The family of this 120-nucleotide RNA sequence from Paenibacillus sp. FSL R7-0331 is "Bacillus sRNA ncr1015".
On this family, see Irnov et al., Nucleic Acids Res 2010: "Identification of regulatory RNAs in Bacillus subtilis".
A search with the family's covariance model found it, with a score of 81 bits.
Rfam classes the family as a small RNA.
RNA sequence: GUAUAAGAUAACAUUUUUAUGUCUAUUUUCUUGAAAAAUAGAGGUGUGUUGAUUAUAUCACUGCUUCUGUACAUAUGCAAUUAAGAAAGAACCUGAUCUCUUGAUCAGGUUCUUUCUUGU
Numbered sequence: 001g002u003a004u005a006a007g008a009u010a011a012c013a014u015u016u017u018u019a020u021g022u023c024u025a026u027u028u029u030c031u032u033g034a035a036a037a038a039u040a041g042a043g044g045u046g047u048g049u050u051g052a053u054u055a056u057a058u059c060a061c062u063g064c065u066u067c068u069g070u071a072c073a074u075a076u077g078c079a080a081u082u083a084a085g086a087a088a089g090a091a092c093c094u095g096a097u098c099u100c101u102u103g104a105u106c107a108g109g110u111u112c113u114u115u116c117u118u119g120u
Stems, first nucleotide, its partner, number of pairs: 034074001038070002040066002044062001085116012